[Rfam]
RNA sequence: AAAGGGGUUUAGAUCCUCUGCAGUACCGUAUGGUGCUGUAGUAUGGAUAACAUGUGGGGCCAGGUCUCACCUGGCAGUGACUGUACAACAUCAUACAGUACUGCAGAGGAUCCUAACCCCUU
Numbered sequence: 001a002a003a004g005g006g007g008u009u010u011a012g013a014u015c016c017u018c019u020g021c022a023g024u025a026c027c028g029u030a031u032g033g034u035g036c037u038g039u040a041g042u043a044u045g046g047a048u049a050a051c052a053u054g055u056g057g058g059g060c061c062a063g064g065u066c067u068c069a070c071c072u073g074g075c076a077g078u079g080a081c082u083g084u085a086c087a088a089c090a091u092c093a094u095a096c097a098g099u100a101c102u103g104c105a106g107a108g109g110a111u112c113c114u115a116a117c118c119c120c121u122u
Stems, first nucleotide, its partner, number of pairs: 002122008012112015028096008037087004051073002054070007
The record is a 122-nucleotide RNA from Triticum aestivum, which matches "MIR5084 microRNA precursor family" in Rfam.
Rfam's curators put it in the seed alignment.
Rfam links the family to the GO terms miRNA-mediated post-transcriptional gene silencing and RISC complex.
NCBI's taxonomy places the organism under Eukaryota, Streptophytina, Petrosaviidae, Pooideae, Triticum.